Small nucleolar RNA Z157/R69/R10: a 95-nucleotide RNA sequence from Apium graveolens. The match comes from Rfam's covariance-model search (72 bits). A reference for the family is Chen et al. (2003), "The high diversity of snoRNAs in plants: identification and comparative study of 120 snoRNA genes from Oryza sativa", Nucleic Acids Res. Taxonomically the source falls in Apium (Eukaryota, Tracheophyta, Gunneridae, Apiales). Rfam links the family to the GO terms RNA processing and nucleolus.
[Rfam]
RNA sequence: UUUGGUGCGGUGAUGAAGCUUAUGUGGACUAGAGUUUCUGAUCUGGCUUAGUACCCAGUAUCUGAAGACAACCCCUUGGCUGUCUGAGCAUCAUG
Numbered sequence: 001u002u003u004g005g006u007g008c009g010g011u012g013a014u015g016a017a018g019c020u021u022a023u024g025u026g027g028a029c030u031a032g033a034g035u036u037u038c039u040g041a042u043c044u045g046g047c048u049u050a051g052u053a054c055c056c057a058g059u060a061u062c063u064g065a066a067g068a069c070a071a072c073c074c075c076u077u078g079g080c081u082g083u084c085u086g087a088g089c090a091u092c093a094u095g
Stems, first nucleotide, its partner, number of pairs: 001095001003093006035067004042060001043058004